[Rfam]
RNA sequence: UAAUUAUUACCAUGAUGACAGCAUAGUUCAGAUGAACAAAGUAUUGAUUACAAACUAGCAUUUUUGUCUUUCGCUCCUAUCUGAUAUAGUUU
Numbered sequence: 001u002a003a004u005u006a007u008u009a010c011c012a013u014g015a016u017g018a019c020a021g022c023a024u025a026g027u028u029c030a031g032a033u034g035a036a037c038a039a040a041g042u043a044u045u046g047a048u049u050a051c052a053a054a055c056u057a058g059c060a061u062u063u064u065u066g067u068c069u070u071u072c073g074c075u076c077c078u079a080u081c082u083g084a085u086a087u088a089g090u091u092u
Stems, first nucleotide, its partner, number of pairs: 004089004

This 92-nucleotide RNA from Ceutorhynchus assimilis belongs to the Rfam family "Small nucleolar RNA snR60/Z15/Z230/Z193/J17".
Its family is annotated with nucleolus and RNA processing in the Gene Ontology.
Clan: SNORD77 clan.